[Rfam]
RNA sequence: GCACCAAAUCUUUCCCAUUCCUUACUGCUCAGUGUGGGCCUGGGGACACAUGGUGCAUACAGAAAGGCAAAGCAAAUCCAGGCGGGUGACUUCUCAGUGGGUACCUGCCUCUACACCUCUGCAACAGUU
Dot-bracket structure: (((((......((((((..((...............))..)))))).....)))))..........(((.((.......((((((((.....(((...))).))))))))......)).))).......
Numbered sequence: 001g002c003a004c005c006a007a008a009u010c011u012u013u014c015c016c017a018u019u020c021c022u023u024a025c026u027g028c029u030c031a032g033u034g035u036g037g038g039c040c041u042g043g044g045g046a047c048a049c050a051u052g053g054u055g056c057a058u059a060c061a062g063a064a065a066g067g068c069a070a071a072g073c074a075a076a077u078c079c080a081g082g083c084g085g086g087u088g089a090c091u092u093c094u095c096a097g098u099g100g101g102u103a104c105c106u107g108c109c110u111c112u113a114c115a116c117c118u119c120u121g122c123a124a125c126a127g128u129u
Stems, first nucleotide, its partner, number of pairs: 001056005012046006020038002067122003071118002080110008093101003
This 129-nucleotide RNA from Eolophus roseicapilla belongs to the Rfam family "Small nucleolar RNA SNORA55". Rfam 15.1 lists 1,476 matches to the family in 616 species. From the family's description: ACA55 is a member of the H/ACA class of snoRNA that guide the sites of modification of uridines to pseudouridines. Rfam classes the family as an H/ACA-box small nucleolar RNA.